RNA: Streptomyces sRNA 4677
Organism: Streptomyces sp. SID8379
RNA sequence: UGCUCCGGUGCUCCCGGCGACCACUGCAAAGGAACGUCGAUGAAGGGAAAGGAACCCGCCCAAGCCCACCCCGCCCUCCGCGCGGGGGCCGUUCACCCGCAACGGUGAACAUCGCCAACUCGGCUGGCAAUUGCCCCGGUUGCUUGCUCUACGCUCAGCGCCACGCACCACCACAACAACCGCAGACAUACGUCGGCCCCCGGCCGGGACUAGCGAUCCCGAUCGAGGGCCUGACCAUCAAGGAAGUAGCACCUUCCCC
Numbered sequence: 001u002g003c004u005c006c007g008g009u010g011c012u013c014c015c016g017g018c019g020a021c022c023a024c025u026g027c028a029a030a031g032g033a034a035c036g037u038c039g040a041u042g043a044a045g046g047g048a049a050a051g052g053a054a055c056c057c058g059c060c061c062a063a064g065c066c067c068a069c070c071c072c073g074c075c076c077u078c079c080g081c082g083c084g085g086g087g088g089c090c091g092u093u094c095a096c097c098c099g100c101a102a103c104g105g106u107g108a109a110c111a112u113c114g115c116c117a118a119c120u121c122g123g124c125u126g127g128c129a130a131u132u133g134c135c136c137c138g139g140u141u142g143c144u145u146g147c148u149c150u151a152c153g154c155u156c157a158g159c160g161c162c163a164c165g166c167a168c169c170a171c172c173a174c175a176a177c178a179a180c181c182g183c184a185g186a187c188a189u190a191c192g193u194c195g196g197c198c199c200c201c202g203g204c205c206g207g208g209a210c211u212a213g214c215g216a217u218c219c220c221g222a223u224c225g226a227g228g229g230c231c232u233g234a235c236c237a238u239c240a241a242g243g244a245a246g247u248a249g250c251a252c253c254u255u256c257c258c259c
Stems, first nucleotide, its partner, number of pairs: 007239004016079002019076001093108005123159005195231005201225002206220004242257005